[Rfam]
This 73-nucleotide RNA sequence belongs to the Rfam family "RAGATH-18 RNA".
RNA sequence: CCCUUGGAGCAUUAUGGCAAACAAAAGUAGUUAAUUUAAUUUAAUAACGAAAUUGGAUGCAAUGAAUAGGGAA
Dot-bracket structure: ((((....(((((........(((.....(((.((........)))))....)))))))).......))))..
Numbered sequence: 001c002c003c004u005u006g007g008a009g010c011a012u013u014a015u016g017g018c019a020a021a022c023a024a025a026a027g028u029a030g031u032u033a034a035u036u037u038a039a040u041u042u043a044a045u046a047a048c049g050a051a052a053u054u055g056g057a058u059g060c061a062a063u064g065a066a067u068a069g070g071g072a073a
Stems, first nucleotide, its partner, number of pairs: 001071004009060005022055003030048003034045002